[Rfam]
Shown here is a 213-nucleotide part of an RNA from Pseudomassariella vexata, a member of the family "Ascomycota telomerase RNA". NCBI's taxonomy places the organism under Eukaryota, Dikarya, Sordariomycetes, Amphisphaeriales, Pseudomassariella. Clan: Telomerase clan.

RNA sequence: UCCCCAACAGUCCUCCGACUCCCGUUUUCCGCAAGGAAUGUCUUCAGACCCCACCAUCCGGUCUUGAACCCGCGCAACACGUCGCAAGCUCGGGAUCAUGGAGAUCUGACGGGUUUGACGCGGUUGGAUCGUUGCGCGAGGGCAGCCAGCUGGCCUGGUUUGCAGGGCCGCCUGGAGGGAAUGUGGUUUCGGAACUUAACCCUAAGCUCACUU
Numbered sequence: 001u002c003c004c005c006a007a008c009a010g011u012c013c014u015c016c017g018a019c020u021c022c023c024g025u026u027u028u029c030c031g032c033a034a035g036g037a038a039u040g041u042c043u044u045c046a047g048a049c050c051c052c053a054c055c056a057u058c059c060g061g062u063c064u065u066g067a068a069c070c071c072g073c074g075c076a077a078c079a080c081g082u083c084g085c086a087a088g089c090u091c092g093g094g095a096u097c098a099u100g101g102a103g104a105u106c107u108g109a110c111g112g113g114u115u116u117g118a119c120g121c122g123g124u125u126g127g128a129u130c131g132u133u134g135c136g137c138g139a140g141g142g143c144a145g146c147c148a149g150c151u152g153g154c155c156u157g158g159u160u161u162g163c164a165g166g167g168c169c170g171c172c173u174g175g176a177g178g179g180a181a182u183g184u185g186g187u188u189u190c191g192g193a194a195c196u197u198a199a200c201c202c203u204a205a206g207c208u209c210a211c212u213u
Base pairs, nucleotide, nucleotide: 009196010195011194015192016191017190018189
Dot-bracket structure: ........(((...((((..........................................................................................................................................................................)))).))).................

The literature on the family includes a 2013 paper in Nucleic Acids Res by Qi et al., "The common ancestral core of vertebrate and fungal telomerase RNAs".